The family of this 218-nucleotide RNA sequence from Pseudomonas cavernae is "sucA-II RNA". Pairs were carried over by alignment from the consensus structure, which is taken from published work. NCBI's taxonomy places the organism under Bacteria, Pseudomonadota, Pseudomonadales, Pseudomonadaceae, Pseudomonas.
[Rfam]
RNA sequence: CUGCGGCGUCGGAAUGGUUCGGGCGCCGCAGUUCUAGUCGGAGCAUGGCUCACAAAGCGGUGCUCCUUACUUGAAAAAUUGAAGACCAGCAGGGGCAUCCGGGCUGGUACCCGGACUAUCUGCGGGAUCCGAAGUGGCUUUACCCAAGUCGCUAUUCGAGGACUUAUAAAGCCGAUGCGGUUUCCACGCCGGUGGUGGCCCCUUACCGAGGGUGACCA
Numbered sequence: 001c002u003g004c005g006g007c008g009u010c011g012g013a014a015u016g017g018u019u020c021g022g023g024c025g026c027c028g029c030a031g032u033u034c035u036a037g038u039c040g041g042a043g044c045a046u047g048g049c050u051c052a053c054a055a056a057g058c059g060g061u062g063c064u065c066c067u068u069a070c071u072u073g074a075a076a077a078a079u080u081g082a083a084g085a086c087c088a089g090c091a092g093g094g095g096c097a098u099c100c101g102g103g104c105u106g107g108u109a110c111c112c113g114g115a116c117u118a119u120c121u122g123c124g125g126g127a128u129c130c131g132a133a134g135u136g137g138c139u140u141u142a143c144c145c146a147a148g149u150c151g152c153u154a155u156u157c158g159a160g161g162a163c164u165u166a167u168a169a170a171g172c173c174g175a176u177g178c179g180g181u182u183u184c185c186a187c188g189c190c191g192g193u194g195g196u197g198g199c200c201c202c203u204u205a206c207c208g209a210g211g212g213u214g215a216c217c218a
Stems, first nucleotide, its partner, number of pairs: 001031010012020002041065006048058003091203005096197002098115006116195005122189003126184002129180002133176001135174008147164004

It is annotated as a cis-regulatory element.